[Rfam]
RNA sequence: AGCUUAGCGCAGUGGCAGUAUCGUAGCCAACGAGGUUUAUCCAAGGCGCGAUUAUUGCUAAUUGAAAACUUUUCCCAAUACCUGGUGGUGAUGACUUGAAAUAUGGUCGGCAUUGGCAAUUUUUGACAGUCUCUAUGGAGA
Numbered sequence: 001a002g003c004u005u006a007g008c009g010c011a012g013u014g015g016c017a018g019u020a021u022c023g024u025a026g027c028c029a030a031c032g033a034g035g036u037u038u039a040u041c042c043a044a045g046g047c048g049c050g051a052u053u054a055u056u057g058c059u060a061a062u063u064g065a066a067a068a069c070u071u072u073u074c075c076c077a078a079u080a081c082c083u084g085g086u087g088g089u090g091a092u093g094a095c096u097u098g099a100a101a102u103a104u105g106g107u108c109g110g111c112a113u114u115g116g117c118a119a120u121u122u123u124u125g126a127c128a129g130u131c132u133c134u135a136u137g138g139a140g141a
Stems, first nucleotide, its partner, number of pairs: 020052005026047003034042002084117001086115001088113003092109005130141004
The record is a 141-nucleotide sequence from Cebus imitator, which matches "U4 spliceosomal RNA" in Rfam. The family's RNA type in Rfam is spliceosomal small nuclear RNA. Rfam describes the family as follows. U4 small nuclear RNA (U4 snRNA) is a component of the major U2-dependent spliceosome. The family has 177 seed sequences and 32,178 matches in Rfam 15.1. A search with the family's covariance model found it, with a score of 105 bits. Taxonomically the source falls in Cebus (Eukaryota, Platyrrhini, Cebidae, Cebinae). Clan: U4 clan.